[Rfam]
RNA sequence: UGAUGGCAUGAUGGCAAUCAUCUUUCAGGACUGAAUGGAAGUAAAGAGAAUACUCUUGCUUAUCAUUU
Numbered sequence: 001u002g003a004u005g006g007c008a009u010g011a012u013g014g015c016a017a018u019c020a021u022c023u024u025u026c027a028g029g030a031c032u033g034a035a036u037g038g039a040a041g042u043a044a045a046g047a048g049a050a051u052a053c054u055c056u057u058g059c060u061u062a063u064c065a066u067u068u
Stems, first nucleotide, its partner, number of pairs: 002067005
Rfam assigns this 68-nucleotide RNA from Nannospalax galili to the family "Small nucleolar RNA SNORD2". Its family is annotated with RNA processing and nucleolus in the Gene Ontology. Pairs were carried over by alignment from the consensus structure, which was predicted with WAR. The literature on the family includes a 2004 paper in Gene by Zhou et al., "Identification of a novel box C/D snoRNA from mouse nucleolar cDNA library".